This 66-nucleotide sequence from Pelagibacterales bacterium SAG-MED20 belongs to the Rfam family "SAM-V (S-adenosyl methionine) riboswitch aptamer".
[Rfam]
RNA sequence: AUUUUCGGUAGGUAUUUGAACUAUAUUGUGCGCCUUGCAUUAGCUGAAGCACUAAAAAAGGAGCUC
Numbered sequence: 001a002u003u004u005u006c007g008g009u010a011g012g013u014a015u016u017u018g019a020a021c022u023a024u025a026u027u028g029u030g031c032g033c034c035u036u037g038c039a040u041u042a043g044c045u046g047a048a049g050c051a052c053u054a055a056a057a058a059a060g061g062a063g064c065u066c
Stems, first nucleotide, its partner, number of pairs: 010035004026055002028052004037044002
On this family, see Huang and Lilley, Nucleic Acids Res 2018: "Structure and ligand binding of the SAM-V riboswitch". Rfam's curators write: SAM-V riboswitch is a cis-regulatory element that was recognised in marine bacteria it recognise S-adenosylmethione (SAM). The binding of SAM leads to the association of the triplex third strand in the aptamer of SAM-V riboswitch that stabilizes a short helix and occludes the ribosome binding site. The family has 7 seed sequences and 23 matches in Rfam 15.1. The organism belongs to Candidatus Pelagibacterales, within Bacteria.